Overview
A member of the RNA family "SAM riboswitch aptamer (S box leader)" from Lysinibacillus sp. 2017, 100 nucleotides long. The source organism's lineage runs through Bacteria, Bacillati, Bacillota, Bacillaceae and Lysinibacillus. From the family's description: The SAM riboswitch is found upstream of a number of genes which code for proteins involved in methionine or cysteine biosynthesis in Gram-positive bacteria.
RNA sequence: UUCUUAUCAAGAGAAGUCGAGGGACUGGCCCAGUGAAACUUCAGCAACCAACGUAAGUCAGGUGCUAAAUCCAGUUGGCAAGUAGCCAAACAGAUGAGAG
Numbered sequence: 001u002u003c004u005u006a007u008c009a010a011g012a013g014a015a016g017u018c019g020a021g022g023g024a025c026u027g028g029c030c031c032a033g034u035g036a037a038a039c040u041u042c043a044g045c046a047a048c049c050a051a052c053g054u055a056a057g058u059c060a061g062g063u064g065c066u067a068a069a070u071c072c073a074g075u076u077g078g079c080a081a082g083u084a085g086c087c088a089a090a091c092a093g094a095u096g097a098g099a100g
Base pairs, nucleotide, nucleotide: 001100002099003098004097005096006095007094008093013042014041015040016039017038021031022030023029025074026073027072028071043066044065045064046063048062049061051058052057070092075089076088077087078086079085